Pseudoknot of tRNA-like structure: a 128-nucleotide RNA from Cucumovirus CMV.
Rfam classes the family as a cis-regulatory element.
Lineage of the source: Viruses > Martellivirales > Bromoviridae > Cucumovirus > Cucumovirus CMV.
RNA sequence: GGUACCCUUGAAAUCACCUCCUAGAUUUCUUCGGAAGGGCUUCGUGAGAAGCUCGUGCACGGUAAUACACUGAUAUUACCAAGAGUGCGGGUAUCGCCUGUGGUUUUCCACAGGUUCUCCAUAAGGAG
Number, nucleotide and partner (000 for none) at each position: 001g095002g094003u093004a092005c091006c090007c089008u000009u000010g029011a028012a027013a026014u025015c024016a000017c000018c000019u128020c000021c126022u125023a000024g015025a014026u013027u012028u011029c010030u000031u000032c000033g000034g000035a000036a000037g054038g053039g052040c051041u050042u049043c000044g000045u000046g000047a000048g000049a042050a041051g040052c039053u038054c037055g000056u000057g088058c087059a086060c085061g080062g079063u078064a077065a076066u075067a074068c000069a000070c000071u000072g000073a000074u067075a066076u065077u064078a063079c062080c061081a000082a000083g000084a000085g060086u059087g058088c057089g007090g006091g005092u004093a003094u002095c001096g115097c114098c113099u112100g111101u110102g109103g108104u000105u000106u000107u000108c103109c102110a101111c100112a099113g098114g097115u096116u000117c000118u000119c000120c000121a000122u000123a000124a000125g022126g021127a000128g019